The family of this 150-nucleotide RNA sequence from Devosia sp. I507 is "FMN riboswitch aptamer (RFN element)". Taxonomically the source falls in Devosia (Bacteria, Pseudomonadati, Alphaproteobacteria, Devosiaceae). Pairs were carried over by alignment from the consensus structure, which is taken from published work.
RNA sequence: GAGAGUUCUCAGGGCGGGGUGAAAUUCCCCACCGGCGGUAAUUGUGUCUUUGUGCACAUCAGCCCGCGAGCGCCCAUCCUUCGGGAUGGGGUCAGCAGACCCGGUGUAAUUCCGGGGCCGACGGUAUAGUCCGGAUGGAAGAGAACCAAU
Numbered sequence: 001g002a003g004a005g006u007u008c009u010c011a012g013g014g015c016g017g018g019g020u021g022a023a024a025u026u027c028c029c030c031a032c033c034g035g036c037g038g039u040a041a042u043u044g045u046g047u048c049u050u051u052g053u054g055c056a057c058a059u060c061a062g063c064c065c066g067c068g069a070g071c072g073c074c075c076a077u078c079c080u081u082c083g084g085g086a087u088g089g090g091g092u093c094a095g096c097a098g099a100c101c102c103g104g105u106g107u108a109a110u111u112c113c114g115g116g117g118c119c120g121a122c123g124g125u126a127u128a129g130u131c132c133g134g135a136u137g138g139a140a141g142a143g144a145a146c147c148a149a150u
Stems, first nucleotide, its partner, number of pairs: 005146006017029003031130002033120002035067004062118002070096002100116005122133003